[Rfam]
RNA sequence: ACCUAUAAAUCGCUAAAUCAACUAUUGAGCGGGGGAACCAUUACCAGUCAGUUCAUGACUUUUUGGGGUGAAUCUUACCUUGUAAGAAGGGAUACUUCUUAGUCCCUAACCCGACAGCUAACCUCGUAAGCGUUUGAAGAAGGAAGG
Number, nucleotide and partner (000 for none) at each position: 001a000002c000003c000004u000005a000006u000007a000008a000009a000010u000011c132012g131013c130014u129015a000016a000017a000018u028019c027020a026021a000022c000023u000024a000025u000026u020027g019028a018029g127030c126031g125032g124033g123034g122035g000036a000037a000038c000039c065040a064041u000042u000043a000044c000045c000046a000047g000048u000049c000050a000051g000052u000053u000054c000055a000056u000057g000058a000059c000060u000061u000062u000063u000064u040065g039066g112067g111068g110069u000070g000071a000072a000073u000074c086075u085076u084077a083078c000079c000080u000081u000082g000083u077084a076085a075086g074087a000088a000089g106090g105091g104092a103093u000094a000095c000096u000097u000098c000099u000100u000101a000102g000103u092104c091105c090106c089107u000108a000109a000110c068111c067112c066113g000114a000115c000116a000117g000118c000119u000120a000121a000122c034123c033124u032125c031126g030127u029128a000129a014130g013131c012132g011133u000134u000135u000136g000137a000138a000139g000140a000141a000142g000143g000144a000145a000146g000147g000
c-di-AMP riboswitch aptamer (ydaO/yuaA leader): a 147-nucleotide RNA from Anaerobacillus alkalidiazotrophicus. The pairing is the family consensus, mapped onto this sequence. The organism belongs to Anaerobacillus, within Bacteria. Rfam links the family to the GO terms cyclic-di-AMP binding and regulation of gene expression.